RNA sequence: UGCUUAUCCAGAAAGACGGAGGGAAUGGACCCAACGAUGUCUUGGCAACCGACCGGCGAAACGGAAACGGUGCCACGUUCCACCCCAGUUCGCUGCGGGGACAGAUAAGUU
Numbered sequence: 001u002g003c004u005u006a007u008c009c010a011g012a013a014a015g016a017c018g019g020a021g022g023g024a025a026u027g028g029a030c031c032c033a034a035c036g037a038u039g040u041c042u043u044g045g046c047a048a049c050c051g052a053c054c055g056g057c058g059a060a061a062c063g064g065a066a067a068c069g070g071u072g073c074c075a076c077g078u079u080c081c082a083c084c085c086c087a088g089u090u091c092g093c094u095g096c097g098g099g100g101a102c103a104g105a106u107a108a109g110u111u
Stems, first nucleotide, its partner, number of pairs: 002110007013043005021032003026082004044074004049070002053064002078103001083100004088096002